[Rfam]
RNA sequence: GUCACGCGAUCGUUAGCGGAAUCUUAUUGCUGCCCUACUUCCGCCAACCGACCGCCCCGCUGGAUUGCGAGAAGAUAAUUCUGCGUUGACCCGGUCCUUUCGGUUCCGGAUUCCUCAGCCCCCAGCCCCCCGGGGCCGUCGGGAUCGGGUCUGUUCGCAGGGGAGUUAAUCCCGAACUCGGGCCAACGAAAGUUGGUCCUUUU
Numbered sequence: 001g002u003c004a005c006g007c008g009a010u011c012g013u014u015a016g017c018g019g020a021a022u023c024u025u026a027u028u029g030c031u032g033c034c035c036u037a038c039u040u041c042c043g044c045c046a047a048c049c050g051a052c053c054g055c056c057c058c059g060c061u062g063g064a065u066u067g068c069g070a071g072a073a074g075a076u077a078a079u080u081c082u083g084c085g086u087u088g089a090c091c092c093g094g095u096c097c098u099u100u101c102g103g104u105u106c107c108g109g110a111u112u113c114c115u116c117a118g119c120c121c122c123c124a125g126c127c128c129c130c131c132g133g134g135g136c137c138g139u140c141g142g143g144a145u146c147g148g149g150u151c152u153g154u155u156c157g158c159a160g161g162g163g164a165g166u167u168a169a170u171c172c173c174g175a176a177c178u179c180g181g182g183c184c185a186a187c188g189a190a191a192g193u194u195g196g197u198c199c200u201u202u203u
Stems, first nucleotide, its partner, number of pairs: 038050001080161006088151011101138009118126002180199008
Dot-bracket structure: .....................................(...........).............................((((((..(((((((((((..(((((((((........((.....))...)))))))))..)))))))))))....))))))..................((((((((....))))))))....